[Rfam]
RNA sequence: CGUUAGCUAUUGCAGCGGCAUCCUUUUUUAAGGGGCUAUGGCCGUUUAAAAAAGAUACAGCGGAAAGAGCGACCCGAA
Numbered sequence: 001c002g003u004u005a006g007c008u009a010u011u012g013c014a015g016c017g018g019c020a021u022c023c024u025u026u027u028u029u030a031a032g033g034g035g036c037u038a039u040g041g042c043c044g045u046u047u048a049a050a051a052a053a054g055a056u057a058c059a060g061c062g063g064a065a066a067g068a069g070c071g072a073c074c075c076g077a078a
Stems, first nucleotide, its partner, number of pairs: 006070003010066002015061002020056003026051007
The family of this 78-nucleotide RNA sequence from Arenibacter nanhaiticus is "Flavo-1 RNA". It scores 45 bits against the family's covariance model.